[Rfam]
The record is a 54-nucleotide sequence from Onychostoma macrolepis, which matches "UnaL2 LINE 3' element" in Rfam.
Gene Ontology term of the family: transposition, RNA-mediated.
The family's RNA type in Rfam is cis-regulatory element.
The organism belongs to Onychostoma, within Eukaryota.
About the family: The eel long interspersed element (LINE) UnaL2 and its partner short interspersed element (SINE) share a conserved 3' tail containing a stem-loop that is critical for their retrotransposition. Presumably, the first step of retrotransposition is the recognition of their 3' tails by UnaL2-encoded reverse transcriptase. The solution structure of a 17-nucleotide RNA derived from the 3' tail of UnaL2 was determined by NMR.

RNA sequence: AUUAUCCUCAUUUGUAAGGCGCUUUGGAUAAAAGCAUCUGCUAAAUGACUUCAU
Dot-bracket structure: ............((((....(((((.....)))))...))).)...........